RNA: DUF3800-IX RNA
RNA sequence: GCCCCGCCAACCCGAACUGUCACCCUUUGGUGGCGUUCCGUCCGCUCGGCCGGAUAGGGAGCGGGGCGCAU
Numbered sequence: 001g002c003c004c005c006g007c008c009a010a011c012c013c014g015a016a017c018u019g020u021c022a023c024c025c026u027u028u029g030g031u032g033g034c035g036u037u038c039c040g041u042c043c044g045c046u047c048g049g050c051c052g053g054a055u056a057g058g059g060a061g062c063g064g065g066g067c068g069c070a071u
Base pairs, nucleotide, nucleotide: 001067002066003065004064005063006062007061011059012058013057018035019034020033021032022031023030024029037054038053039052040051